[Rfam]
RNA sequence: CCCAAAGUGCUGGGAUUAAUCCUUACCUGUUCCUCCUUUGCAGGGCAGAUAGAACAUGAUAACUGGAGAUGCAUGAAAUGUGAUUAACAUCUCUGUGUAAUCAGGACUUGGAACACACUUAAUUUCUUUUUAAU
Numbered sequence: 001c002c003c004a005a006a007g008u009g010c011u012g013g014g015a016u017u018a019a020u021c022c023u024u025a026c027c028u029g030u031u032c033c034u035c036c037u038u039u040g041c042a043g044g045g046c047a048g049a050u051a052g053a054a055c056a057u058g059a060u061a062a063c064u065g066g067a068g069a070u071g072c073a074u075g076a077a078a079u080g081u082g083a084u085u086a087a088c089a090u091c092u093c094u095g096u097g098u099a100a101u102c103a104g105g106a107c108u109u110g111g112a113a114c115a116c117a118c119u120u121a122a123u124u125u126c127u128u129u130u131u132a133a134u
Stems, first nucleotide, its partner, number of pairs: 027048003031045004036040001075093002078090003081086001097126001099124003103120003
Shown here is a 134-nucleotide RNA sequence from Rhinopithecus roxellana, a member of the family "U8 small nucleolar RNA". It scores 78 bits against the family's covariance model. Pairs were carried over by alignment from the consensus structure, which is taken from published work. Rfam 15.1 lists 1,597 matches to the family in 457 species. Taxonomically the source falls in Rhinopithecus (Eukaryota, Euteleostomi, Theria, Boreoeutheria). Rfam classes the family as a C/D-box small nucleolar RNA.